[Rfam]
RNA sequence: CCCCUUUAAACCCGCGAUCCAAUCGCCUAUAUCAAGCCUGUCGGGUUCGCCCGACUAUGGGGAUAAACGCGGUGUGGAAUAGACGUUGCGGACCCGGGGGCGGUACCCGGCGCCUCCACCAUUCACUCCCGGCCGGAUGGCCAGGGGUUCAUGGGGGCGAAACAGGAUCGACGCGCGUAAUAAAGGCAUAGUCUUCCCUCGGCAUGAUACCGCCGUUAUCGGGUCAAACCUCAUAGAUGCCAACGAUAACUCGGCGUCUGACCUUCGCAUGGCUGCCUGAUUCCCCCUAAAGGGCGUUAGUCAGUUUGCUUAAGUCGCAGCCCGGGGGGAGCUGGGCAACAGAAUCCCCCCACC
Numbered sequence: 001c002c003c004c005u006u007u008a009a010a011c012c013c014g015c016g017a018u019c020c021a022a023u024c025g026c027c028u029a030u031a032u033c034a035a036g037c038c039u040g041u042c043g044g045g046u047u048c049g050c051c052c053g054a055c056u057a058u059g060g061g062g063a064u065a066a067a068c069g070c071g072g073u074g075u076g077g078a079a080u081a082g083a084c085g086u087u088g089c090g091g092a093c094c095c096g097g098g099g100g101c102g103g104u105a106c107c108c109g110g111c112g113c114c115u116c117c118a119c120c121a122u123u124c125a126c127u128c129c130c131g132g133c134c135g136g137a138u139g140g141c142c143a144g145g146g147g148u149u150c151a152u153g154g155g156g157g158c159g160a161a162a163c164a165g166g167a168u169c170g171a172c173g174c175g176c177g178u179a180a181u182a183a184a185g186g187c188a189u190a191g192u193c194u195u196c197c198c199u200c201g202g203c204a205u206g207a208u209a210c211c212g213c214c215g216u217u218a219u220c221g222g223g224u225c226a227a228a229c230c231u232c233a234u235a236g237a238u239g240c241c242a243a244c245g246a247u248a249a250c251u252c253g254g255c256g257u258c259u260g261a262c263c264u265u266c267g268c269a270u271g272g273c274u275g276c277c278u279g280a281u282u283c284c285c286c287c288u289a290a291a292g293g294g295c296g297u298u299a300g301u302c303a304g305u306u307u308g309c310u311u312a313a314g315u316c317g318c319a320g321c322c323c324g325g326g327g328g329g330a331g332c333u334g335g336g337c338a339a340c341a342g343a344a345u346c347c348c349c350c351c352a353c354c
Base pairs, nucleotide, nucleotide: 040055041054042053043052044051059199060198061197062196063195069192070191072189073188074187075186084177085176086175088174089173090172094110095109096108097107098106111159112158113157114156115155116154117153200215201214202213203212205226206225207224210222211221318334319333320332321331324351325350326349327348328347329346